[Rfam]
RNA sequence: GGAAGCGUGCCAGAGCGGCCGAAUGGGACACACUGCUAAUGUGUUGUGCUCGUCAAGGGCACCGAGGGUUCAAAUCCCUCCGCUUCCG
Numbered sequence: 001g002g003a004a005g006c007g008u009g010c011c012a013g014a015g016c017g018g019c020c021g022a023a024u025g026g027g028a029c030a031c032a033c034u035g036c037u038a039a040u041g042u043g044u045u046g047u048g049c050u051c052g053u054c055a056a057g058g059g060c061a062c063c064g065a066g067g068g069u070u071c072a073a074a075u076c077c078c079u080c081c082g083c084u085u086c087c088g
Base pairs, nucleotide, nucleotide: 001087002086003085004084005083006082007081010026011025012024028044029043030042031041032040064080065079066078067077068076
RNA: tRNA